[Rfam]
RNA sequence: AGGGGAACUGCAGUCUCCCCUUGAGACCUCGGUCCAAGGACUGU
Numbered sequence: 001a002g003g004g005g006a007a008c009u010g011c012a013g014u015c016u017c018c019c020c021u022u023g024a025g026a027c028c029u030c031g032g033u034c035c036a037a038g039g040a041c042u043g044u
Stems, first nucleotide, its partner, number of pairs: 001021006010044005025034003
Dot-bracket structure: ((((((...[[[[[.))))))...(((....))).....]]]]]
chrB-b RNA: a 44-nucleotide sequence from Bradyrhizobium ivorense. The source organism's lineage runs through Bacteria, Pseudomonadati, Hyphomicrobiales, Nitrobacteraceae and Bradyrhizobium. A search with the family's covariance model found it, with a score of 38 bits. The base pairs follow the family's consensus structure, which is taken from published work.